[Rfam]
Background: This 168-nucleotide RNA from Clostridiales bacterium S5-A14a belongs to the Rfam family "FMN riboswitch aptamer (RFN element)". Pairs were carried over by alignment from the consensus structure, which is taken from published work.
RNA sequence: UAAAGUCUUCAGGGCAGGGUUAAAUUCCCGACCGGCGGUAAAGUCCGCGAGCAUAGAACUUUAUCUUGAAACUCUUACGCUUUCACAUAUGAGAAUUCUAAAAUAAAGUUUGCAUGAUUCGGUGAAAUUCCGAAACCGACAGUAAAGUCUGGAUGGAAGAAGAUAGUU
Numbered sequence: 001u002a003a004a005g006u007c008u009u010c011a012g013g014g015c016a017g018g019g020u021u022a023a024a025u026u027c028c029c030g031a032c033c034g035g036c037g038g039u040a041a042a043g044u045c046c047g048c049g050a051g052c053a054u055a056g057a058a059c060u061u062u063a064u065c066u067u068g069a070a071a072c073u074c075u076u077a078c079g080c081u082u083u084c085a086c087a088u089a090u091g092a093g094a095a096u097u098c099u100a101a102a103a104u105a106a107a108g109u110u111u112g113c114a115u116g117a118u119u120c121g122g123u124g125a126a127a128u129u130c131c132g133a134a135a136c137c138g139a140c141a142g143u144a145a146a147g148u149c150u151g152g153a154u155g156g157a158a159g160a161a162g163a164u165a166g167u168u
Stems, first nucleotide, its partner, number of pairs: 005164006017029003031148002033138002035048004043136002051113003118134005140151003